[Rfam]
A member of the RNA family "transfer-messenger RNA" from Streptococcus pyogenes, 345 nucleotides long.
A reference for the family is Williams and Bartel (1996), "Phylogenetic analysis of tmRNA secondary structure", RNA.
The family is grouped with related families in Rfam's "tRNA clan".
Pairs were carried over by alignment from the consensus structure, which is taken from published work.
Rfam's curators put it in the seed alignment.
Rfam classes the family as a non-coding RNA gene.

RNA sequence: GGGGUUGUUACGGAUUCGACAGGCAUUAUGAGGCAUGUUUUGCGUCCCAUCGGCAGAUGUAAAUUGCCAGUUAAAUAUAACUGCAAAAAAUACAAACUCUUACGCUUUAGCUGCCUAAAAACCAGCUAGCGUGACUUCUACAAGAUUGCUUGUGUCCUGUUAGAAGUCUCAAAAUAGCAAGCUACGGUUACGAAAUUGUCUAGUUUCGUGACAAGAGAUUGAUAGACUCGCAAACUAAUGGCUUGAGUUAUGUGUCUUUAGUUUGUUAAAUGAAGACAUAACCUAUGGACGUAGACAAAUAUGUUGGCAGGUGUUUGGACGUGGGUUCGACUCCCACCAGCUCCA
Numbered sequence: 001g002g003g004g005u006u007g008u009u010a011c012g013g014a015u016u017c018g019a020c021a022g023g024c025a026u027u028a029u030g031a032g033g034c035a036u037g038u039u040u041u042g043c044g045u046c047c048c049a050u051c052g053g054c055a056g057a058u059g060u061a062a063a064u065u066g067c068c069a070g071u072u073a074a075a076u077a078u079a080a081c082u083g084c085a086a087a088a089a090a091u092a093c094a095a096a097c098u099c100u101u102a103c104g105c106u107u108u109a110g111c112u113g114c115c116u117a118a119a120a121a122c123c124a125g126c127u128a129g130c131g132u133g134a135c136u137u138c139u140a141c142a143a144g145a146u147u148g149c150u151u152g153u154g155u156c157c158u159g160u161u162a163g164a165a166g167u168c169u170c171a172a173a174a175u176a177g178c179a180a181g182c183u184a185c186g187g188u189u190a191c192g193a194a195a196u197u198g199u200c201u202a203g204u205u206u207c208g209u210g211a212c213a214a215g216a217g218a219u220u221g222a223u224a225g226a227c228u229c230g231c232a233a234a235c236u237a238a239u240g241g242c243u244u245g246a247g248u249u250a251u252g253u254g255u256c257u258u259u260a261g262u263u264u265g266u267u268a269a270a271u272g273a274a275g276a277c278a279u280a281a282c283c284u285a286u287g288g289a290c291g292u293a294g295a296c297a298a299a300u301a302u303g304u305u306g307g308c309a310g311g312u313g314u315u316u317g318g319a320c321g322u323g324g325g326u327u328c329g330a331c332u333c334c335c336a337c338c339a340g341c342u343c344c345a
Stems, first nucleotide, its partner, number of pairs: 001344007020317008032305009043291005048059004052068004107129007133168006140160003144156003148182006187212009198227005230266009240256003247282003252277002321337005